[Rfam]
RNA: Yersinia sRNA 276
Organism: Limnobaculum parvum
RNA sequence: CACUGACAUCAGCGAUUCAUUCUGGGAACCAUGACCUACCGCUAAGUAAGCAUUCAUUCCUAGCUCUUUCAUCUGCUGUUCGCCAAUGACUUUAGUCAUGAUAUUUUCACUGAACGCAUCAGCCAAUUGACGAGCUUGGGAAGCUAGAUAAGCAGCGUUACAAAUAUUUGGCGGCAUAUUGCCCAAAUCUUUUGC
Number, nucleotide and partner (000 for none) at each position: 001c000002a000003c000004u000005g189006a188007c000008a000009u000010c000011a000012g032013c000014g030015a000016u028017u027018c026019a000020u024021u000022c000023u000024g020025g000026g018027a017028a016029c000030c014031a000032u012033g043034a000035c041036c000037u000038a000039c000040c000041g035042c000043u033044a000045a000046g000047u000048a000049a000050g059051c000052a000053u000054u000055c000056a000057u000058u000059c050060c000061u000062a077063g076064c075065u000066c000067u000068u000069u000070c000071a000072u000073c000074u000075g064076c063077u062078g135079u134080u133081c132082g131083c000084c129085a128086a127087u126088g000089a000090c000091u000092u122093u121094a000095g119096u118097c000098a000099u112100g111101a000102u109103a000104u000105u000106u000107u000108c000109a102110c000111u100112g099113a000114a000115c000116g000117c000118a096119u095120c000121a093122g092123c000124c000125a000126a087127u086128u085129g084130a000131c082132g081133a080134g079135c078136u163137u162138g161139g000140g159141a158142a000143g156144c155145u154146a000147g000148a000149u000150a000151a000152g000153c000154a145155g144156c143157g000158u141159u140160a000161c138162a137163a136164a000165u000166a000167u186168u185169u000170g183171g182172c181173g000174g000175c000176a000177u000178a000179u000180u000181g172182c171183c170184c000185a168186a167187a000188u006189c005190u000191u000192u000193u000194g000195c000